[Rfam]
RNA sequence: CAAUUUUGACGUCGCCUAAGUAUCCUAACGGGCUUUUUAGGUCGACGACAAUUCUAACUUAGAGGAGUGCUGUUAGUGGCCCGUAUCGCUGGCAUUAACAUCCCUGAA
Numbered sequence: 001c002a003a004u005u006u007u008g009a010c011g012u013c014g015c016c017u018a019a020g021u022a023u024c025c026u027a028a029c030g031g032g033c034u035u036u037u038u039a040g041g042u043c044g045a046c047g048a049c050a051a052u053u054c055u056a057a058c059u060u061a062g063a064g065g066a067g068u069g070c071u072g073u074u075a076g077u078g079g080c081c082c083g084u085a086u087c088g089c090u091g092g093c094a095u096u097a098a099c100a101u102c103c104c105u106g107a108a
Base pairs, nucleotide, nucleotide: 006051007050008049010047011046012045013044024092025091029083030082031081032080037107038106039105

The record is a 108-nucleotide sequence from Saliniradius amylolyticus, which matches "Alpha operon ribosome binding site" in Rfam. Its family is annotated with ribosome binding in the Gene Ontology. By type it is a cis-regulatory element. From the family's description: The bacterial alpha operon ribosome binding site is surrounded by this complex pseudoknotted structure. Translation of the mRNA produces 4 ribosomal protein products, one of which (S4) acts as a translational repressor by binding to the nested pseudoknot region. The mechanism of repression is thought to involve a conformational switch in the pseudoknot region and ribosome entrapment. The base pairs follow the family's consensus structure, which is taken from published work. It scores 85 bits against the family's covariance model.